mir-33 microRNA precursor family: a 72-nucleotide RNA from Aquarana catesbeiana. The base pairs follow the family's consensus structure, which was predicted with PFOLD. Lineage of the source: Eukaryota > Opisthokonta > Chordata > Ranoidea > Aquarana.
RNA sequence: CCACUUUGCAUUACAAGUGCACUGCCAGUGCACAUUCAAGUGCACUGGCAGUGCACUUGUAAUGCAAAGUGG
Numbered sequence: 001c002c003a004c005u006u007u008g009c010a011u012u013a014c015a016a017g018u019g020c021a022c023u024g025c026c027a028g029u030g031c032a033c034a035u036u037c038a039a040g041u042g043c044a045c046u047g048g049c050a051g052u053g054c055a056c057u058u059g060u061a062a063u064g065c066a067a068a069g070u071g072g
Stems, first nucleotide, its partner, number of pairs: 001072004006068001007066010019054001021052007